[Rfam]
RNA: MIR394 microRNA precursor family
Organism: Acer yangbiense
RNA sequence: CUUACAGAGUUUAUUGGCAUUCUGUCCACCUCCCAAUCAUAUAUAUAAUUUUUUAUUUUAAAAAAAAAAAAAAACCUCUCUCUAUCUCUCUAAUGGAGGAGGAGGUGGGCAUACUGCCAACUGAGCUCUGUUGG
Numbered sequence: 001c002u003u004a005c006a007g008a009g010u011u012u013a014u015u016g017g018c019a020u021u022c023u024g025u026c027c028a029c030c031u032c033c034c035a036a037u038c039a040u041a042u043a044u045a046u047a048a049u050u051u052u053u054u055a056u057u058u059u060a061a062a063a064a065a066a067a068a069a070a071a072a073a074a075c076c077u078c079u080c081u082c083u084a085u086c087u088c089u090c091u092a093a094u095g096g097a098g099g100a101g102g103a104g105g106u107g108g109g110c111a112u113a114c115u116g117c118c119a120a121c122u123g124a125g126c127u128c129u130g131u132u133g134g
Base pairs, nucleotide, nucleotide: 011124014120015119016118017117018116019115023111024110025109026108027107028106029105030104031103032102033101